[Rfam]
RNA sequence: CAAUAGACUGGCUUUACAUGAGGGGUUGGCGCACCUAUACUCUUCUGGGAUUUUUCCCAUGAAGGGAGGUGAUGCCCAUGGAUAUGAAAGAUGUGUUAACGCUGAUGAUUUCUUUCGGCAUGUUAAUCGCUUUUAUCAUGUCCGAUAAAGACAAAAAAUAACCCCUCAUGUGCUUUGCAAGGACCUUGAGGGAUUAUCUUUUCCUUUAGUGCGCCUUCCCCUCUUGAUGGGGUUGGUCUAUUGAAACCGUUCCAUGUUCCCGCAUGGGACG
Numbered sequence: 001c002a003a004u005a006g007a008c009u010g011g012c013u014u015u016a017c018a019u020g021a022g023g024g025g026u027u028g029g030c031g032c033a034c035c036u037a038u039a040c041u042c043u044u045c046u047g048g049g050a051u052u053u054u055u056c057c058c059a060u061g062a063a064g065g066g067a068g069g070u071g072a073u074g075c076c077c078a079u080g081g082a083u084a085u086g087a088a089a090g091a092u093g094u095g096u097u098a099a100c101g102c103u104g105a106u107g108a109u110u111u112c113u114u115u116c117g118g119c120a121u122g123u124u125a126a127u128c129g130c131u132u133u134u135a136u137c138a139u140g141u142c143c144g145a146u147a148a149a150g151a152c153a154a155a156a157a158a159u160a161a162c163c164c165c166u167c168a169u170g171u172g173c174u175u176u177g178c179a180a181g182g183a184c185c186u187u188g189a190g191g192g193a194u195u196a197u198c199u200u201u202u203c204c205u206u207u208a209g210u211g212c213g214c215c216u217u218c219c220c221c222u223c224u225u226g227a228u229g230g231g232g233u234u235g236g237u238c239u240a241u242u243g244a245a246a247c248c249g250u251u252c253c254a255u256g257u258u259c260c261c262g263c264a265u266g267g268g269a270c271g
Stems, first nucleotide, its partner, number of pairs: 001243005007237003011233001013213001015172008024163004032071002035069002080143007094107002118134001120132001219232004248271010
BsrG: a 271-nucleotide RNA from Cerasibacillus terrae. It scores 58 bits against the family's covariance model. Its family is annotated with toxin activity and autolysis in the Gene Ontology.